[Rfam]
RNA sequence: AAGGAGCAAUAACCAAUUUCUUGUUCUACCAAGAGGAUUGGUAUUGCUCCUUU
Numbered sequence: 001a002a003g004g005a006g007c008a009a010u011a012a013c014c015a016a017u018u019u020c021u022u023g024u025u026c027u028a029c030c031a032a033g034a035g036g037a038u039u040g041g042u043a044u045u046g047c048u049c050c051u052u053u
Base pairs, nucleotide, nucleotide: 001052002051003050004049005048006047007046008045009044010043011042013040018035019034020033021032022031023030
Shown here is a 53-nucleotide RNA sequence from Pachysandra terminalis, a member of the family "Plastid-psbA-3 3UTR RNA". Rfam classes the family as a cis-regulatory element. Pairs were carried over by alignment from the consensus structure, which was predicted with LocARNA. It is one of the family's seed sequences. Plastid psbA-3 is a non-coding RNA (ncRNA) present in plastids. It was identified in inverted repeat sequences in the 3 prime untranslate region (3UTR) of photosystem II quinone-binding protein (psbA).